[Rfam]
RNA sequence: AACCACUAAGUUCACCUCCUCCCAGAACUUAGCUAGAAUGCGGCAAUCUCCUCCUCCCAUGCCGCGUUCGUCAUUAAAGGCCGCGCAUCCUCCUCCCGCGCGGCCUUUUUC
Dot-bracket structure: ......(((((((...........)))))))....((((((((((..............))))))))))........(((((((((...........))))))))).....